A member of the RNA family "Plant signal recognition particle RNA" from Trifolium subterraneum, 302 nucleotides long. The family's consensus secondary structure is taken from published work. NCBI's taxonomy places the organism under Eukaryota, Embryophyta, Fabaceae, Hologalegina, Trifolium. The family's RNA type in Rfam is non-coding RNA gene.
RNA sequence: GCCGAGUUGGGUAGCUCCAACUUGUAACCCAAAUGGGGGCAUUAAGGUGAUGGAACACAGCUUUGGCUUGUCAGGUUGGUCUGGAGGGUGCACCAUGUUGGCCUGCCCACUCCAAGUUGAGAGUUGAGUCAUGGGACUUAAGCGAAAGCUUGGGUUUCAAGUCUCUUAGACAGGAGGGCACGGCGUGAGGCUGGUUUCACAGAGCAGCGAACACCUCCUUCUCUUAACAGUGGAAGGAUAACAGGCCACAGUAUUCCCAGUCCAAAAAGCUUGGUGAGCCAAGCCAUUGAACCAUCAUUUUU
Numbered sequence: 001g002c003c004g005a006g007u008u009g010g011g012u013a014g015c016u017c018c019a020a021c022u023u024g025u026a027a028c029c030c031a032a033a034u035g036g037g038g039g040c041a042u043u044a045a046g047g048u049g050a051u052g053g054a055a056c057a058c059a060g061c062u063u064u065g066g067c068u069u070g071u072c073a074g075g076u077u078g079g080u081c082u083g084g085a086g087g088g089u090g091c092a093c094c095a096u097g098u099u100g101g102c103c104u105g106c107c108c109a110c111u112c113c114a115a116g117u118u119g120a121g122a123g124u125u126g127a128g129u130c131a132u133g134g135g136a137c138u139u140a141a142g143c144g145a146a147a148g149c150u151u152g153g154g155u156u157u158c159a160a161g162u163c164u165c166u167u168a169g170a171c172a173g174g175a176g177g178g179c180a181c182g183g184c185g186u187g188a189g190g191c192u193g194g195u196u197u198c199a200c201a202g203a204g205c206a207g208c209g210a211a212c213a214c215c216u217c218c219u220u221c222u223c224u225u226a227a228c229a230g231u232g233g234a235a236g237g238a239u240a241a242c243a244g245g246c247c248a249c250a251g252u253a254u255u256c257c258c259a260g261u262c263c264a265a266a267a268a269g270c271u272u273g274g275u276g277a278g279c280c281a282a283g284c285c286a287u288u289g290a291a292c293c294a295u296c297a298u299u300u301u302u
Stems, first nucleotide, its partner, number of pairs: 001040003004023008028037003044301010056289002060285001061283003065279001068277010078263002081260004086255001088254003099248007107237002111234004116228008126165003130161001132159012172219006184209003191202003